[Rfam]
The record is a 142-nucleotide RNA from Thermogemmata fonticola, which matches "c-di-AMP riboswitch aptamer (ydaO/yuaA leader)" in Rfam.
RNA sequence: CGCGAUAAGUCGCCGAAUCCAUCUGCAUGAAGCAGGUGGAACGGGGGACCUCAAAUACCGGGCGAAUCCUGAACGAUCAGGAGGGGGUAACUCGGCUCCUAGCCCAAACUAGCUAACCCCGUAGGCGUCCGAGGACAUCGCA
Numbered sequence: 001c002g003c004g005a006u007a008a009g010u011c012g013c014c015g016a017a018u019c020c021a022u023c024u025g026c027a028u029g030a031a032g033c034a035g036g037u038g039g040a041a042c043g044g045g046g047g048a049c050c051u052c053a054a055a056u057a058c059c060g061g062g063c064g065a066a067u068c069c070u071g072a073a074c075g076a077u078c079a080g081g082a083g084g085g086g087g088u089a090a091c092u093c094g095g096c097u098c099c100u101a102g103c104c105c106a107a108a109c110u111a112g113c114u115a116a117c118c119c120c121g122u123a124g125g126c127g128u129c130c131g132a133g134g135a136c137a138u139c140g141c142a
Stems, first nucleotide, its partner, number of pairs: 011127004018040009041122006060105003068081004084099004